Rfam assigns this 200-nucleotide sequence from Equus caballus to the family "Connexin-43 internal ribosome entry site (IRES)".
RNA sequence: AGCUUUUACAAGGUAUCAGCACUUUUCUUUCAUUAGGGAGAAGGAGUGAAGAAAGUACCAAAGAGCGGCAGACUUUUAAACUUUAAAUAGCCAGGUCCGAGUGCCUGGACUCGCGUUUUCAUUUUACUUCAUCCUCUAAGGAGUUCAGUCACUUGGCGAGCGUACUUCAUUUCUUUUGAGAAAAAGAGUAAGUUAAAAAA
Numbered sequence: 001a002g003c004u005u006u007u008a009c010a011a012g013g014u015a016u017c018a019g020c021a022c023u024u025u026u027c028u029u030u031c032a033u034u035a036g037g038g039a040g041a042a043g044g045a046g047u048g049a050a051g052a053a054a055g056u057a058c059c060a061a062a063g064a065g066c067g068g069c070a071g072a073c074u075u076u077u078a079a080a081c082u083u084u085a086a087a088u089a090g091c092c093a094g095g096u097c098c099g100a101g102u103g104c105c106u107g108g109a110c111u112c113g114c115g116u117u118u119u120c121a122u123u124u125u126a127c128u129u130c131a132u133c134c135u136c137u138a139a140g141g142a143g144u145u146c147a148g149u150c151a152c153u154u155g156g157c158g159a160g161c162g163u164a165c166u167u168c169a170u171u172u173c174u175u176u177u178g179a180g181a182a183a184a185a186g187a188g189u190a191a192g193u194u195a196a197a198a199a200a
Stems, first nucleotide, its partner, number of pairs: 002020003007015003029143003033139006040130004048123002051120001053119003071097005099114001101112001103110001153197001154195001158194002165186003170180003

This family represents the connexin-43 internal ribosome entry site (IRES) which allows cap independent translation during conditions such as heat shock and stress. Rfam links the family to the GO term ribosome binding. Pairs were carried over by alignment from the consensus structure, which is taken from published work. The source organism's lineage runs through Eukaryota, Sarcopterygii, Boreoeutheria, Equidae and Equus. On this family, see Schiavi et al., FEBS Lett 1999: "Connexin43 mRNA contains a functional internal ribosome entry site".